[Rfam]
This 54-nucleotide sequence from Denticeps clupeoides belongs to the Rfam family "UnaL2 LINE 3' element". For this family Rfam cites "Solution structure of an RNA stem-loop derived from the 3' conserved region of eel LINE UnaL2" (Baba et al., RNA, 2004). The family's consensus secondary structure is taken from published work. Rfam links the family to the GO term transposition, RNA-mediated. Rfam classes the family as a cis-regulatory element.
RNA sequence: AGAAGUUCCUCUUGUAAGUCGCUUUGGAUAAAAGCGUCUGCAAAAUAAAGUAAA
Dot-bracket structure: ............((((...((((((.....))))))..))).)...........